[Rfam]
A member of the RNA family "Pseudomonadales-1 RNA" from Acinetobacter johnsonii, 168 nucleotides long. The family's consensus secondary structure is taken from published work. It is one of the family's seed sequences. Taxonomically the source falls in Acinetobacter johnsonii (Bacteria, Pseudomonadati, Gammaproteobacteria, Moraxellaceae).
RNA sequence: CCUACUGGAGUGCUGACCAGUGGAACAUGCCAUCGAGUAAACUUCCCUCGGGAAUCUAGACUAGGGAGUAGCGUCCCGACCUAAAGAGGAUUGAAAGCAAGUAAAGCAGACCGUGCAUGUUAGGUGUGUGUGAUUGUGAGUAGCGGUAGAUCAGUUGCCGAUCUGGUC
Numbered sequence: 001c002c003u004a005c006u007g008g009a010g011u012g013c014u015g016a017c018c019a020g021u022g023g024a025a026c027a028u029g030c031c032a033u034c035g036a037g038u039a040a041a042c043u044u045c046c047c048u049c050g051g052g053a054a055u056c057u058a059g060a061c062u063a064g065g066g067a068g069u070a071g072c073g074u075c076c077c078g079a080c081c082u083a084a085a086g087a088g089g090a091u092u093g094a095a096a097g098c099a100a101g102u103a104a105a106g107c108a109g110a111c112c113g114u115g116c117a118u119g120u121u122a123g124g125u126g127u128g129u130g131u132g133a134u135u136g137u138g139a140g141u142a143g144c145g146g147u148a149g150a151u152c153a154g155u156u157g158c159c160g161a162u163c164u165g166g167u168c
Stems, first nucleotide, its partner, number of pairs: 002023007012072004026119005062079001064077004091146003097137004102132001104131001106129003110125003149168006
Description: By type it is a small RNA.